[Rfam]
RNA sequence: ACCUCUGAGCCAUCUCUCCAGCCCCUAAGAGAUAUUUUUUUUUAUAAGUGGGCAGAAGACUUUUUUUUUAAGAUUUAUUUAUUGGGCUGGAGAGAUGGCUCAGAGGU
Dot-bracket structure: .(((((((((((((((((((((((...........................................................))))))))))))))))))))))).

A member of the RNA family "mir-3473 microRNA precursor family" from Mesocricetus auratus, 107 nucleotides long. The family has 5 seed sequences and 1,094 matches in Rfam 15.1. The family's consensus secondary structure was predicted with RNAalifold. Taxonomically the source falls in Mesocricetus (Eukaryota, Bilateria, Vertebrata, Sarcopterygii).